Description: A member of the RNA family "Plant signal recognition particle RNA" from Gossypium arboreum, 306 nucleotides long. The family's consensus secondary structure is taken from published work. On this family, see Wild et al., Curr Opin Struct Biol 2002: "Towards the structure of the mammalian signal recognition particle". NCBI's taxonomy places the organism under Eukaryota, Tracheophyta, Malvaceae, Malvoideae, Gossypium.

[Rfam]
RNA sequence: GCUGAGUUGGGUAACGCCUGCUUGUGACCCGUGUGGGGGCAGUAAGGUGGUUGGACUUUGGGUCCACUCAUUGAAUCAGAUUUACAGUGGCUAUAAUCUGGCUUGCCCGUUCCAAGCAUUGAGAUGGGCUACGAGUCUUGAGCGAAAGCUUUGGGUCUCCUUGCUCCUAGAGUGGAAGGCAAAGCGUAAGGCUGGUUUCACAGAGCAGCGAAAACUUCCCUCUCUUUGCAGUGGAAGGAUAACGGGCCGGUGUCACUUGGAUCCUUCAUGGUUCCUUGGGUCUUCCCUAAACGGACAACCGCUUUU
Numbered sequence: 001g002c003u004g005a006g007u008u009g010g011g012u013a014a015c016g017c018c019u020g021c022u023u024g025u026g027a028c029c030c031g032u033g034u035g036g037g038g039g040c041a042g043u044a045a046g047g048u049g050g051u052u053g054g055a056c057u058u059u060g061g062g063u064c065c066a067c068u069c070a071u072u073g074a075a076u077c078a079g080a081u082u083u084a085c086a087g088u089g090g091c092u093a094u095a096a097u098c099u100g101g102c103u104u105g106c107c108c109g110u111u112c113c114a115a116g117c118a119u120u121g122a123g124a125u126g127g128g129c130u131a132c133g134a135g136u137c138u139u140g141a142g143c144g145a146a147a148g149c150u151u152u153g154g155g156u157c158u159c160c161u162u163g164c165u166c167c168u169a170g171a172g173u174g175g176a177a178g179g180c181a182a183a184g185c186g187u188a189a190g191g192c193u194g195g196u197u198u199c200a201c202a203g204a205g206c207a208g209c210g211a212a213a214a215c216u217u218c219c220c221u222c223u224c225u226u227u228g229c230a231g232u233g234g235a236a237g238g239a240u241a242a243c244g245g246g247c248c249g250g251u252g253u254c255a256c257u258u259g260g261a262u263c264c265u266u267c268a269u270g271g272u273u274c275c276u277u278g279g280g281u282c283u284u285c286c287c288u289a290a291a292c293g294g295a296c297a298a299c300c301g302c303u304u305u306u
Stems, first nucleotide, its partner, number of pairs: 001040003004023004009018002028037003044305010056293001058290003061286002066281001068279003073274005079263006087256004092252002098250008107238002110236005116229003121224004126166004131161001133159003137155004141150003167172001174219005185210003192203003